[Rfam]
RNA sequence: GGUGCCAGAGGAAGGGAUCCCAAUCCAGCCUUAGGAAAAGAAACCUUCCACGGGAGUCUUGGAGAUUGGCAGCCAUCCUAAUGCCCA
Numbered sequence: 001g002g003u004g005c006c007a008g009a010g011g012a013a014g015g016g017a018u019c020c021c022a023a024u025c026c027a028g029c030c031u032u033a034g035g036a037a038a039a040g041a042a043a044c045c046u047u048c049c050a051c052g053g054g055a056g057u058c059u060u061g062g063a064g065a066u067u068g069g070c071a072g073c074c075a076u077c078c079u080a081a082u083g084c085c086c087a
Stems, first nucleotide, its partner, number of pairs: 002086001004085001006083002010079002013076001015074002018071001020069006029062002038060004044054003

The record is an 87-nucleotide sequence from Equus asinus, which matches "mir-9014 microRNA precursor family" in Rfam. The match comes from Rfam's covariance-model search (72 bits). The family's consensus secondary structure was predicted with RNAalifold.